[Rfam]
Nucleotides: 241
Base pairs, nucleotide, nucleotide: 001241002240003239004238005237006236007235008234011231012230014228015227016226017225018224019223020222021221022220023219024218025217026216027215028214029213030212031211032210033209034208036206037205039203040202041201043199044198045197061181062180063179066176067175068174069173070172071171072170073169075167076166077165078164079163080162097146099144100143101142103140104139105138106137107136108135109134110133111132112131113130114129117124118123
Number, partner (000 for none) and nucleotide at each position: 001241u002240u003239u004238u005237u006236u007235a008234c009000c010000u011231a012230u013000c014228g015227g016226a017225a018224u019223g020222a021221u022220c023219u024218g025217a026216a027215a028214u029213u030212u031211g032210g033209a034208g035000c036206g037205u038000a039203u040202g041201u042000u043199c044198a045197u046000a047000a048000g049000a050000a051000a052000u053000a054000g055000g056000u057000g058000a059000a060000u061181c062180u063179a064000c065000g066176a067175a068174a069173a070172a071171u072170a073169u074000c075167a076166a077165a078164a079163a080162a081000a082000u083000a084000u085000u086000u087000u088000a089000c090000a091000u092000g093000a094000a095000a096000c097146a098000a099144a100143u101142u102000a103140a104139c105138c106137a107136a108135a109134a110133u111132a112131c113130c114129c115000u116000u117124g118123a119000a120000a121000a122000g123118u124117u125000u126000c127000a128000g129114g130113g131112g132111u133110a134109u135108u136107u137106u138105g139104g140103u141000c142101a143100a144099u145000a146097u147000u148000u149000u150000u151000u152000u153000u154000u155000c156000a157000a158000a159000u160000u161000u162080u163079u164078u165077u166076u167075u168000u169073a170072u171071a172070u173069u174068u175067u176066u177000a178000u179063u180062a181061g182000g183000u184000g185000c186000g187000c188000u189000u190000c191000a192000c193000u194000a195000a196000g197045a198044u199043g200000u201041a202040c203039a204000c205037a206036c207000g208034u209033u210032c211031c212030a213029a214028a215027u216026u217025u218024c219023a220022g221021a222020u223019c224018a225017u226016u227015c228014c229000a230012a231011u232000u233000u234008g235007u236006a237005g238004a239003a240002a241001a

The family of this 241-nucleotide RNA from Amborella trichopoda is "MIR8562 microRNA precursor family".